The family of this 59-nucleotide RNA sequence is "Glutamine riboswitch aptamer (glnA leader)". Gene Ontology term of the family: glutamine binding. Rfam's curators put it in the seed alignment.
RNA sequence: GACGUUCAUUUUAGUAGCAAUACUAAAACGGAAGUAGACGAAAGUCGAAGGAACGCAUG
Numbered sequence: 001g002a003c004g005u006u007c008a009u010u011u012u013a014g015u016a017g018c019a020a021u022a023c024u025a026a027a028a029c030g031g032a033a034g035u036a037g038a039c040g041a042a043a044g045u046c047g048a049a050g051g052a053a054c055g056c057a058u059g
Base pairs, nucleotide, nucleotide: 003055004054005053006052007051009028010027011026012025013024014023015022016021031056037046038045039044